[Rfam]
RNA sequence: AAGAGGAUUUUUUUUGAAAUUAAUUUUUAGGAGCAGGUUUCAAACUACCUCAAGUGAUUCUACUUAAUAGAUAUGGUCAUAAGCGUUAAGGGAAAAUUAACACAAGACGCUAACUUGU
Numbered sequence: 001a002a003g004a005g006g007a008u009u010u011u012u013u014u015u016g017a018a019a020u021u022a023a024u025u026u027u028u029a030g031g032a033g034c035a036g037g038u039u040u041c042a043a044a045c046u047a048c049c050u051c052a053a054g055u056g057a058u059u060c061u062a063c064u065u066a067a068u069a070g071a072u073a074u075g076g077u078c079a080u081a082a083g084c085g086u087u088a089a090g091g092g093a094a095a096a097u098u099a100a101c102a103c104a105a106g107a108c109g110c111u112a113a114c115u116u117g118u
Base pairs, nucleotide, nucleotide: 001015002014003013004012005011016041017040018039019038020037021036024033025032026031046117048091049090050089052087053086054080055079057077058076059075061073062072064070097113098112099111101109
Dot-bracket structure: (((((.....)))))((((((..(((....)))..))))))....(.(((.((((.(((.((.(.....).)).))).)).....)).))).....(((.(.......).)))...).